RNA sequence: AUCCCUCAUCGCCCGGGGAGGGAGGGCAGGCAUAUGUGGCCGCUAUCUCUUCAACUGGGCAGUGAGGACC
Numbered sequence: 001a002u003c004c005c006u007c008a009u010c011g012c013c014c015g016g017g018g019a020g021g022g023a024g025g026g027c028a029g030g031c032a033u034a035u036g037u038g039g040c041c042g043c044u045a046u047c048u049c050u051u052c053a054a055c056u057g058g059g060c061a062g063u064g065a066g067g068a069c070c
Stems, first nucleotide, its partner, number of pairs: 006065004011060006017050005026040002029037001
The record is a 70-nucleotide sequence, which matches "Hepatitis C virus stem-loop VII" in Rfam. On this family, see Mauger et al., Proc Natl Acad Sci U S A 2015: "Functionally conserved architecture of hepatitis C virus RNA genomes". The base pairs follow the family's consensus structure, which was predicted with RNAfold. Rfam classes the family as a cis-regulatory element.